[Rfam]
RNA sequence: AAGUGUGCGGUGAUGAGGCUAUUUGUGGACUAGAGUUUAUGAUCUGGGUUCUUCUCCCAAAAGUUUGAUUACAAACCCUUGGCUGUCUGAGCACUCUU
Numbered sequence: 001a002a003g004u005g006u007g008c009g010g011u012g013a014u015g016a017g018g019c020u021a022u023u024u025g026u027g028g029a030c031u032a033g034a035g036u037u038u039a040u041g042a043u044c045u046g047g048g049u050u051c052u053u054c055u056c057c058c059a060a061a062a063g064u065u066u067g068a069u070u071a072c073a074a075a076c077c078c079u080u081g082g083c084u085g086u087c088u089g090a091g092c093a094c095u096c097u098u
Base pairs, nucleotide, nucleotide: 001098002097003096005094006093007092008091037068038067039066043062045059046058047057048056
Dot-bracket structure: (((.((((............................(((...(.((((.......))))..)...)))......................)))).)))
Shown here is a 98-nucleotide RNA sequence from Prunus dulcis, a member of the family "Small nucleolar RNA Z157/R69/R10". Clan: SNORD52 clan. The family's RNA type in Rfam is C/D-box small nucleolar RNA.